[Rfam]
RNA sequence: AUGAUGAUCGUGGGAGAGACCCCUCGGGGCGCCGAAGGAGCAAUCUGGUUUACAGACGCUGUGUAAGACUGGUUAAACUCUCAGGCAAAGGGACUGCGAUCGGACG
Numbered sequence: 001a002u003g004a005u006g007a008u009c010g011u012g013g014g015a016g017a018g019a020c021c022c023c024u025c026g027g028g029g030c031g032c033c034g035a036a037g038g039a040g041c042a043a044u045c046u047g048g049u050u051u052a053c054a055g056a057c058g059c060u061g062u063g064u065a066a067g068a069c070u071g072g073u074u075a076a077a078c079u080c081u082c083a084g085g086c087a088a089a090g091g092g093a094c095u096g097c098g099a100u101c102g103g104a105c106g
Base pairs, nucleotide, nucleotide: 006101007100008099009098010097011096012095013094020029021028022027031086032085033084034082035081038080039079040078045072046071047070048069049068050067051066
Dot-bracket structure: .....((((((((......(((....))).(((((..(((....(((((((..............))))))).....))))).))).......)))))))).....
The record is a 106-nucleotide RNA from Desulforamulus reducens, which matches "Glycine riboswitch aptamer" in Rfam. Its family is annotated with glycine biosynthetic process in the Gene Ontology.